The family of this 77-nucleotide RNA from Alligator mississippiensis is "Mammalian CPEB3 ribozyme". Pairs were carried over by alignment from the consensus structure, which is taken from published work.

RNA sequence: AGGUGCAAGUUUAAGGCCAUAGCGGACAUGUUCAUGGCACAGCCCUGUCAGAUUCCAACGAAUCUGUGAAUUCUGCU
Numbered sequence: 001a002g003g004u005g006c007a008a009g010u011u012u013a014a015g016g017c018c019a020u021a022g023c024g025g026a027c028a029u030g031u032u033c034a035u036g037g038c039a040c041a042g043c044c045c046u047g048u049c050a051g052a053u054u055c056c057a058a059c060g061a062a063u064c065u066g067u068g069a070a071u072u073c074u075g076c077u
Stems, first nucleotide, its partner, number of pairs: 015044003021077006029039002049066007